About this RNA:
Rfam assigns this 74-nucleotide RNA from Enhydra lutris to the family "mir-4680 microRNA precursor family". The base pairs follow the family's consensus structure, which was predicted with RNAalifold. Taxonomically the source falls in Enhydra lutris (Eukaryota, Chordata, Mammalia, Caniformia).

RNA sequence: UAUAAGAACUCUUACAGUCUAAGAUGUUAUUAAAAAAUAUAUAAAUAUAUCUGAAUUGUAAGAGUUGUUAGCAC
Numbered sequence: 001u002a003u004a005a006g007a008a009c010u011c012u013u014a015c016a017g018u019c020u021a022a023g024a025u026g027u028u029a030u031u032a033a034a035a036a037a038u039a040u041a042u043a044a045a046u047a048u049a050u051c052u053g054a055a056u057u058g059u060a061a062g063a064g065u066u067g068u069u070a071g072c073a074c
Stems, first nucleotide, its partner, number of pairs: 004069002007066012020054001022052006029046003